Shown here is a 60-nucleotide RNA sequence from Rhodococcus xishaensis, a member of the family "Actino-pnp RNA". The family's consensus secondary structure is taken from published work. It is annotated as a cis-regulatory element.

[Rfam]
RNA sequence: GUCGGUCUUCGGUAGUGGCCCUCCGGAUGUCGAUCCGGCCGGCUUCGAUCGACGGCCGCC
Numbered sequence: 001g002u003c004g005g006u007c008u009u010c011g012g013u014a015g016u017g018g019c020c021c022u023c024c025g026g027a028u029g030u031c032g033a034u035c036c037g038g039c040c041g042g043c044u045u046c047g048a049u050c051g052a053c054g055g056c057c058g059c060c
Stems, first nucleotide, its partner, number of pairs: 001060001003058005009052005017044004023038006